[Rfam]
RNA sequence: GUAAUGUUUCUUGCUCAAAUGAGUAUUCCAAAGGGGAACUCGAUCGCAACUUAGUGUUCCAUUUUUGUGAUUCUCAUUUGGGCAAGCAAUGUUAA
Number, nucleotide and partner (000 for none) at each position: 001g000002u000003a000004a092005u091006g090007u089008u088009u000010c086011u085012u084013g083014c082015u081016c080017a079018a078019a077020u076021g075022a074023g073024u000025a071026u070027u069028c000029c067030a066031a065032a064033g063034g062035g000036g000037a000038a000039c000040u000041c000042g000043a000044u000045c000046g000047c000048a000049a000050c000051u000052u000053a000054g000055u000056g000057u000058u000059c000060c000061a000062u034063u033064u032065u031066u030067g029068u000069g027070a026071u025072u000073c023074u022075c021076a020077u019078u018079u017080g016081g015082g014083c013084a012085a011086g010087c000088a008089a007090u006091g005092u004093u000094a000095a000

This 95-nucleotide RNA sequence from Dorcoceras hygrometricum belongs to the Rfam family "MIR828 microRNA precursor family". On this family, see Rajagopalan et al., Genes Dev 2006: "A diverse and evolutionarily fluid set of microRNAs in Arabidopsis thaliana". The source organism's lineage runs through Eukaryota, Pentapetalae, asterids, Loxocarpinae and Dorcoceras.